[Rfam]
RNA: THF (Tetrahydrofolate) riboswitch aptamer
RNA sequence: GGCAGAGUAGGAACCGGCGCGUUAAGUGCCGCCUGAACGGGGAGUUGUCAGGCGGACGAAAAGAGUUUCUUGCGGUGCCGGUUUCGCAUCCCGCUGCU
Number, nucleotide and partner (000 for none) at each position: 001g098002g097003c096004a095005g094006a000007g000008u000009a000010g085011g084012a083013a082014c081015c080016g079017g078018c077019g076020c074021g073022u072023u000024a000025a000026g057027u056028g000029c055030c054031g053032c052033c051034u050035g049036a048037a000038c000039g000040g091041g090042g089043a000044g087045u000046u000047g000048u036049c035050a034051g033052g032053c031054g030055g029056a027057c026058g000059a000060a000061a071062a070063g069064a068065g000066u000067u000068u064069c063070u062071u061072g022073c021074g020075g000076u019077g018078c017079c016080g015081g014082u013083u012084u011085c010086g000087c044088a000089u042090c041091c040092c000093g000094c005095u004096g003097c002098u001